Small nucleolar RNA R38: an 87-nucleotide RNA from Cephalotus follicularis. Rfam links the family to the GO terms nucleolus and RNA processing. Rfam classes the family as a C/D-box small nucleolar RNA.
[Rfam]
RNA sequence: CGUUGUGGAUGAUGAGAAUUUUUUAAAUAUACAGUUAUCCCUGUCUGAUAUUAUUGGUGCUGAUAUUUAUUAAACCCUGACACAAUU
Numbered sequence: 001c002g003u004u005g006u007g008g009a010u011g012a013u014g015a016g017a018a019u020u021u022u023u024u025a026a027a028u029a030u031a032c033a034g035u036u037a038u039c040c041c042u043g044u045c046u047g048a049u050a051u052u053a054u055u056g057g058u059g060c061u062g063a064u065a066u067u068u069a070u071u072a073a074a075c076c077c078u079g080a081c082a083c084a085a086u087u
Base pairs, nucleotide, nucleotide: 002086003085004084005083006082007081

Background: From the family's description: snoR38 is a C/D box small nucleolar RNA conserved across yeast, human, Arabidopsis and rice.